Rfam assigns this 84-nucleotide RNA from Momordica charantia to the family "Small nucleolar RNA R44/J54/Z268 family". The base pairs follow the family's consensus structure, which was predicted with PFOLD. By type it is a C/D-box small nucleolar RNA.

Nucleotides: 084
Stems, first nucleotide, its partner, number of pairs: 002083005
Number, partner (000 for none) and nucleotide at each position: 001000u002083g003082u004081g005080c006079a007000a008000g009000u010000g011000a012000c013000g014000a015000u016000g017000a018000a019000a020000c021000a022000g023000a024000c025000a026000g027000g028000g029000a030000c031000a032000u033000c034000a035000g036000c037000a038000c039000u040000c041000g042000g043000u044000u045000u046000g047000a048000g049000a050000a051000u052000g053000a054000u055000g056000a057000u058000c059000g060000u061000c062000u063000u064000u065000g066000g067000g068000a069000a070000u071000c072000u073000c074000u075000c076000u077000g078000a079006u080005g081004c082003a083002u084000u

Its family is annotated with nucleolus and RNA processing in the Gene Ontology.